[Rfam]
RNA sequence: UGGCACAGUGAACUCCCAUGGUGCUUUACGCUUGCCUUGGCUUUGACUCUGUGCUGGAGCAAUGUCUGAUCUUUCCUCUUCAUUAAAAAGAAUUUAUCCUUCUAAAUGUAUUCAAAGAGCUGGAACCUUU
Numbered sequence: 001u002g003g004c005a006c007a008g009u010g011a012a013c014u015c016c017c018a019u020g021g022u023g024c025u026u027u028a029c030g031c032u033u034g035c036c037u038u039g040g041c042u043u044u045g046a047c048u049c050u051g052u053g054c055u056g057g058a059g060c061a062a063u064g065u066c067u068g069a070u071c072u073u074u075c076c077u078c079u080u081c082a083u084u085a086a087a088a089a090g091a092a093u094u095u096a097u098c099c100u101u102c103u104a105a106a107u108g109u110a111u112u113c114a115a116a117g118a119g120c121u122g123g124a125a126c127c128u129u130u
Stems, first nucleotide, its partner, number of pairs: 003054006010048001013045001016040003020036001022034001023032001025030001057071002060068002077116001079114001081108004085103001087101002090098002
Dot-bracket structure: ..((((((.(..(..(((.(.((.(....).).).).)))....)..)))))))..((.((.....)).)).....(.(.(((((.((.((.....)).)).).)))).....).)..............
This 130-nucleotide sequence from Otolemur garnettii belongs to the Rfam family "Small nucleolar RNA SNORA22". The family's consensus secondary structure was predicted with RNAfold. About the family: ACA22 is a member of the H/ACA class of snoRNA that guide the sites of modification of uridines to pseudouridines. The source organism's lineage runs through Eukaryota, Eumetazoa, Vertebrata, Tetrapoda and Otolemur. It is one of the family's seed sequences. By type it is an H/ACA-box small nucleolar RNA. Gene Ontology terms of the family: nucleolus and RNA processing.